[Rfam]
RNA sequence: UGCAGUGCAUGGUAUCUGCGCUCAGCAGCUCAUUCCUGCUGGUGUUCAAAGGACACUGUGACAGGAACCCAAUAUCUGGCAUCAUUGGUUUUCUUGGCUUUGUGCAGUUAGCUGUGGUAUUUCUAUUGAUAUGGUA
Number, nucleotide and partner (000 for none) at each position: 001u000002g059003c058004a057005g056006u055007g054008c000009a000010u000011g000012g000013u000014a000015u052016c051017u050018g045019c044020g043021c042022u041023c000024a040025g039026c038027a037028g036029c000030u000031c000032a000033u000034u000035c000036c028037u027038g026039c025040u024041g022042g021043u020044g019045u018046u000047c000048a000049a000050a017051g016052g015053a000054c007055a006056c005057u004058g003059u002060g000061a000062c000063a124064g123065g122066a121067a120068c000069c117070c116071a115072a000073u000074a000075u000076c000077u000078g000079g105080c104081a103082u102083c000084a000085u000086u000087g000088g000089u000090u000091u000092u000093c000094u000095u000096g000097g000098c000099u000100u000101u000102g082103u081104g080105c079106a000107g000108u000109u000110a000111g000112c000113u000114g000115u071116g070117g069118u000119a000120u067121u066122u065123c064124u063125a000126u000127u000128g000129a000130u000131a000132u000133g000134g000135u000136a000
RNA: Small nucleolar RNA SNORA8
Organism: Jaculus jaculus